Shown here is a 120-nucleotide RNA sequence from Gossypium hirsutum, a member of the family "MIR7504 microRNA precursor family".
The source organism's lineage runs through Eukaryota, Streptophytina, Pentapetalae, malvids and Gossypium.
Rfam links the family to the GO terms RISC complex and miRNA-mediated post-transcriptional gene silencing.
[Rfam]
RNA sequence: AAUGGGAGAAUGACAAAUUAAAUUUUUACUACUGAUUUUCAGAUUUUUCCUCCUGAAAAAUUUAAAUUCAACUAAAAAUGCCAAAAAUUAGAAGUAAAUCUGAUUUGUUAUUCUCUCAAU
Numbered sequence: 001a002a003u004g005g006g007a008g009a010a011u012g013a014c015a016a017a018u019u020a021a022a023u024u025u026u027u028a029c030u031a032c033u034g035a036u037u038u039u040c041a042g043a044u045u046u047u048u049c050c051u052c053c054u055g056a057a058a059a060a061u062u063u064a065a066a067u068u069c070a071a072c073u074a075a076a077a078a079u080g081c082c083a084a085a086a087a088u089u090a091g092a093a094g095u096a097a098a099u100c101u102g103a104u105u106u107g108u109u110a111u112u113c114u115c116u117c118a119a120u
Base pairs, nucleotide, nucleotide: 001120003118004117005116006115007114008113009112010111011110012109013108014107015106016105017104018103019102020101022099025098026097027096029094030093032091033090034089035088036087037086038085039084042081045078046077047076048075